This 180-nucleotide sequence from Vespertiliibacter pulmonis belongs to the Rfam family "6S / SsrS RNA". Rfam classes the family as a non-coding RNA gene. A reference for the family is Elkina et al. (2017), "6S RNA in Rhodobacter sphaeroides: 6S RNA and pRNA transcript levels peak in late exponential phase and gene deletion causes a high salt stress phenotype", RNA Biol. It scores 119 bits against the family's covariance model. The family's consensus secondary structure is taken from published work.
RNA sequence: AAUCACCUGAAGUGUUCGUUAUAGGUUACGUCCCUGAGCCGAUAAUUUUAACUCCUUGAGUUGAACCCUUGAUUGUUGGUGAGCAGGCUCGCUUGCGAGAAGCCUAAAAACGAUUAUGUUUGACUCCCUUGAACCAUUUGGUUCAAGGACCACUACCGACAGCGGCACUUCGGGGCUUUA
Numbered sequence: 001a002a003u004c005a006c007c008u009g010a011a012g013u014g015u016u017c018g019u020u021a022u023a024g025g026u027u028a029c030g031u032c033c034c035u036g037a038g039c040c041g042a043u044a045a046u047u048u049u050a051a052c053u054c055c056u057u058g059a060g061u062u063g064a065a066c067c068c069u070u071g072a073u074u075g076u077u078g079g080u081g082a083g084c085a086g087g088c089u090c091g092c093u094u095g096c097g098a099g100a101a102g103c104c105u106a107a108a109a110a111c112g113a114u115u116a117u118g119u120u121u122g123a124c125u126c127c128c129u130u131g132a133a134c135c136a137u138u139u140g141g142u143u144c145a146a147g148g149a150c151c152a153c154u155a156c157c158g159a160c161a162g163c164g165g166c167a168c169u170u171c172g173g174g175g176c177u178u179u180a
Stems, first nucleotide, its partner, number of pairs: 002178001006174010017164003030150004035145006058126003062122005069116001071115007083103002088099004
NCBI's taxonomy places the organism under Bacteria, Pseudomonadati, Pasteurellales, Pasteurellaceae, Vespertiliibacter.